[Rfam]
RNA sequence: UAUUGUUGAUAUGAUGACCUUAUAGUUCAUCUGACUAACAUCCGUGAUGUUAUCAAUAUUUUGUCUUUCGCUCCUAUCUGACGACAAUU
Number, nucleotide and partner (000 for none) at each position: 001u000002a000003u000004u086005g085006u084007u083008g082009a000010u000011a000012u000013g000014a000015u000016g000017a000018c000019c000020u000021u000022a000023u000024a000025g000026u000027u000028c000029a000030u000031c000032u000033g000034a000035c000036u000037a000038a000039c000040a000041u000042c000043c000044g000045u000046g000047a000048u000049g000050u000051u000052a000053u000054c000055a000056a000057u000058a000059u000060u000061u000062u000063g000064u000065c000066u000067u000068u000069c000070g000071c000072u000073c000074c000075u000076a000077u000078c000079u000080g000081a000082c008083g007084a006085c005086a004087a000088u000089u000
This 89-nucleotide RNA sequence from Apolygus lucorum belongs to the Rfam family "Small nucleolar RNA snR60/Z15/Z230/Z193/J17". On this family, see Chen et al., Nucleic Acids Res 2003: "The high diversity of snoRNAs in plants: identification and comparative study of 120 snoRNA genes from Oryza sativa". Rfam classes the family as a C/D-box small nucleolar RNA. NCBI's taxonomy places the organism under Eukaryota, Pterygota, Panheteroptera, Mirinae, Apolygus. The pairing is the family consensus, mapped onto this sequence.